[Rfam]
RNA: small Cajal body-specific RNA 18
RNA sequence: UGGUCUUUGAUGAAUAGCCCACUGCGCAAUCUGAAUUCUGUGGAACUGAAUGAUAGAAUUUGUGCUGAUCAAGGUAUCUGAGACCA
Numbered sequence: 001u002g003g004u005c006u007u008u009g010a011u012g013a014a015u016a017g018c019c020c021a022c023u024g025c026g027c028a029a030u031c032u033g034a035a036u037u038c039u040g041u042g043g044a045a046c047u048g049a050a051u052g053a054u055a056g057a058a059u060u061u062g063u064g065c066u067g068a069u070c071a072a073g074g075u076a077u078c079u080g081a082g083a084c085c086a
Base pairs, nucleotide, nucleotide: 002085003084004083005082038048040046041045